[Rfam]
RNA sequence: GUCACGGGAUCGUUAGGCAAAUCUUAUUGCCGCCAGAUUUCCGCCCAGCCGCAGCCUUUUCGGGUUGCGAAAAACAGAUACUGCGUCGGGCCCGGUUCUUUCGAUCCUGGAUUCCUCAGCCCCCAGCCCCCCGGGGUUGUAAGGAUCGGGCCUGCGCAGGGUUAUCCCACUGGGCCAACGCAAGUUGGCCCUUUU
Numbered sequence: 001g002u003c004a005c006g007g008g009a010u011c012g013u014u015a016g017g018c019a020a021a022u023c024u025u026a027u028u029g030c031c032g033c034c035a036g037a038u039u040u041c042c043g044c045c046c047a048g049c050c051g052c053a054g055c056c057u058u059u060u061c062g063g064g065u066u067g068c069g070a071a072a073a074a075c076a077g078a079u080a081c082u083g084c085g086u087c088g089g090g091c092c093c094g095g096u097u098c099u100u101u102c103g104a105u106c107c108u109g110g111a112u113u114c115c116u117c118a119g120c121c122c123c124c125a126g127c128c129c130c131c132c133g134g135g136g137u138u139g140u141a142a143g144g145a146u147c148g149g150g151c152c153u154g155c156g157c158a159g160g161g162u163u164a165u166c167c168c169a170c171u172g173g174g175c176c177a178a179c180g181c182a183a184g185u186u187g188g189c190c191c192u193u194u195u
Stems, first nucleotide, its partner, number of pairs: 038051001041048001081159006089152011102139009119127002172191008
Dot-bracket structure: .....................................(..(......)..).............................((((((..(((((((((((..(((((((((........((.....))...)))))))))..))))))))))).))))))............((((((((....))))))))....
A member of the RNA family "Bradyrhizobiaceae sRNA BjrC174" from Tardiphaga sp. vice352, 195 nucleotides long. Taxonomically the source falls in Tardiphaga (Bacteria, Alphaproteobacteria, Hyphomicrobiales, Nitrobacteraceae). The pairing is the family consensus, mapped onto this sequence.